[Rfam]
RNA sequence: UCCCUUUCGCAGGGCGCUCAUAUCGCCUAUAUAGGUCGAGCCGGGCAACCGGCUAUGGCGAUAAACGGUGCGUGGAAUAAGUGUUGUGGACCCGGGGGCAGUACCCGGCGCCUCCACCAAAUUCUGGCUUUGGGGCAAACUCCGCCCUCCGAGGCAGAUCAUGGGGGUGAAACAGGCUCGACACGCACGGUAAAGACCCAUCUUUCGCUCGGCAUUGUACCGCCGUUAUCGGGCUAUAUCACAAGUGCCAACGAUAAUUUCGAGGCAUUCGCUGUCGCUGCAUAAGCGAUAAGCGCGGUUCGGGGGGCACCGGGCAACAGAAGCCCCCCACU
Numbered sequence: 001u002c003c004c005u006u007u008c009g010c011a012g013g014g015c016g017c018u019c020a021u022a023u024c025g026c027c028u029a030u031a032u033a034g035g036u037c038g039a040g041c042c043g044g045g046c047a048a049c050c051g052g053c054u055a056u057g058g059c060g061a062u063a064a065a066c067g068g069u070g071c072g073u074g075g076a077a078u079a080a081g082u083g084u085u086g087u088g089g090a091c092c093c094g095g096g097g098g099c100a101g102u103a104c105c106c107g108g109c110g111c112c113u114c115c116a117c118c119a120a121a122u123u124c125u126g127g128c129u130u131u132g133g134g135g136c137a138a139a140c141u142c143c144g145c146c147c148u149c150c151g152a153g154g155c156a157g158a159u160c161a162u163g164g165g166g167g168u169g170a171a172a173c174a175g176g177c178u179c180g181a182c183a184c185g186c187a188c189g190g191u192a193a194a195g196a197c198c199c200a201u202c203u204u205u206c207g208c209u210c211g212g213c214a215u216u217g218u219a220c221c222g223c224c225g226u227u228a229u230c231g232g233g234c235u236a237u238a239u240c241a242c243a244a245g246u247g248c249c250a251a252c253g254a255u256a257a258u259u260u261c262g263a264g265g266c267a268u269u270c271g272c273u274g275u276c277g278c279u280g281c282a283u284a285a286g287c288g289a290u291a292a293g294c295g296c297g298g299u300u301c302g303g304g305g306g307g308c309a310c311c312g313g314g315c316a317a318c319a320g321a322a323g324c325c326c327c328c329c330a331c332u
Stems, first nucleotide, its partner, number of pairs: 040053005057209005067202004072197002082187003086184003092108005109169007210225004215236001217234001220232002296312004302329006
Source information
Rfam assigns this 332-nucleotide sequence from Acidiphilium rubrum to the family "Alphaproteobacteria transfer-messenger RNA". NCBI's taxonomy places the organism under Bacteria, Pseudomonadota, Acetobacterales, Acidocellaceae, Acidiphilium. By type it is a non-coding RNA gene. The family's consensus secondary structure is taken from published work. Its Rfam clan is "tRNA clan". The match comes from Rfam's covariance-model search (261 bits).